[Rfam]
Rfam assigns this 89-nucleotide sequence from Astyanax mexicanus to the family "mir-204 microRNA precursor family".
For this family Rfam cites "Identification and characterization of microRNAs from the bovine adipose tissue and mammary gland" (Gu et al., FEBS Lett, 2007).
The family has 60 seed sequences and 1,730 matches in Rfam 15.1.
Its family is annotated with RISC complex and miRNA-mediated post-transcriptional gene silencing in the Gene Ontology.
The organism belongs to Astyanax, within Eukaryota.
RNA sequence: CUGUGACCUCCUGGGUUUCCCUUUGUCAUCCUAUGCCUGGAGCUCCAGAGGAGGCAGGGACAGCAAAGGGAGGCCCAGCCGUCAUCCCA
Numbered sequence: 001c002u003g004u005g006a007c008c009u010c011c012u013g014g015g016u017u018u019c020c021c022u023u024u025g026u027c028a029u030c031c032u033a034u035g036c037c038u039g040g041a042g043c044u045c046c047a048g049a050g051g052a053g054g055c056a057g058g059g060a061c062a063g064c065a066a067a068g069g070g071a072g073g074c075c076c077a078g079c080c081g082u083c084a085u086c087c088c089a
Base pairs, nucleotide, nucleotide: 018071019070020069021068022067023066025064026063029060030059031058032057035055036054037053038052